Overview: Shown here is a 136-nucleotide RNA sequence from Phyllostomus discolor, a member of the family "Small nucleolar RNA SNORA42/SNORA80 family". From the family's description: The members of this family belong to the H/ACA class of snoRNAs that guide the sites of modification of uridines to pseudouridines. Human ACA42 (SNORA42) was cloned from HeLa cells by immunoprecipitation with anti-GAR1 antibody. Its is predicted to guide the pseudouridylation of residues U109 and U572 of 18S rRNA. ACA42 shares the same host gene with ACA26, ACA46, ACA50. This family also includes mammalian snoRNA ACA67 (SNORA80) which was identified by computational screening and its expression in mouse experimentally verified by Northern blot and primer extension analysis. The match comes from Rfam's covariance-model search (130 bits). For this family Rfam cites "A computational screen for mammalian pseudouridylation guide H/ACA RNAs" (Schattner et al., RNA, 2006).
[Rfam]
RNA sequence: GCAUGGUAGUGGAUUUAUGGCGGGCCCUCCCCGUGGGCCUCUCAUAGUGUGCCCAUGCCAGAGUAAAUCACAACCUCGAACCAUUGCCCAGCCUCCUUAUCCGUGGGCUGUGAGCACUGAAGGGGGUUGUACAGUA
Numbered sequence: 001g002c003a004u005g006g007u008a009g010u011g012g013a014u015u016u017a018u019g020g021c022g023g024g025c026c027c028u029c030c031c032c033g034u035g036g037g038c039c040u041c042u043c044a045u046a047g048u049g050u051g052c053c054c055a056u057g058c059c060a061g062a063g064u065a066a067a068u069c070a071c072a073a074c075c076u077c078g079a080a081c082c083a084u085u086g087c088c089c090a091g092c093c094u095c096c097u098u099a100u101c102c103g104u105g106g107g108c109u110g111u112g113a114g115c116a117c118u119g120a121a122g123g124g125g126g127u128u129g130u131a132c133a134g135u136a
Base pairs, nucleotide, nucleotide: 001058002057003056004055005053006052007051008050015047016046017045018044019043020042022040023039024038025036026035071129072128073127074126075125076124082119083118087114089110090109091108092107093106094105
Taxonomically the source falls in Phyllostomus (Eukaryota, Bilateria, Deuterostomia, Amniota). The family has 21 seed sequences and 1,535 matches in Rfam 15.1. Rfam classes the family as an H/ACA-box small nucleolar RNA.